[Rfam]
RNA sequence: AAGCCGUGUGGUCAGCGCAAAACGAACUAUUCUUUCGCCUUUUACUAAAGAAUACCGUGUGUUGGCCACAUAAUAGCGGCAUAUCCAAAUUUUUGGAACGCUUCCUCACGGAGGCAC
Numbered sequence: 001a002a003g004c005c006g007u008g009u010g011g012u013c014a015g016c017g018c019a020a021a022a023c024g025a026a027c028u029a030u031u032c033u034u035u036c037g038c039c040u041u042u043u044a045c046u047a048a049a050g051a052a053u054a055c056c057g058u059g060u061g062u063u064g065g066c067c068a069c070a071u072a073a074u075a076g077c078g079g080c081a082u083a084u085c086c087a088a089a090u091u092u093u094u095g096g097a098a099c100g101c102u103u104c105c106u107c108a109c110g111g112a113g114g115c116a117c
Stems, first nucleotide, its partner, number of pairs: 003080004009068011028054008100115005